[Rfam]
RNA sequence: CGUAUGGUGUCUGACAGUAAGCUGAUCAGAUAGCGAUACGGCCCUAACGAGGU
Numbered sequence: 001c002g003u004a005u006g007g008u009g010u011c012u013g014a015c016a017g018u019a020a021g022c023u024g025a026u027c028a029g030a031u032a033g034c035g036a037u038a039c040g041g042c043c044c045u046a047a048c049g050a051g052g053u
Stems, first nucleotide, its partner, number of pairs: 001040005007034002011029004015024003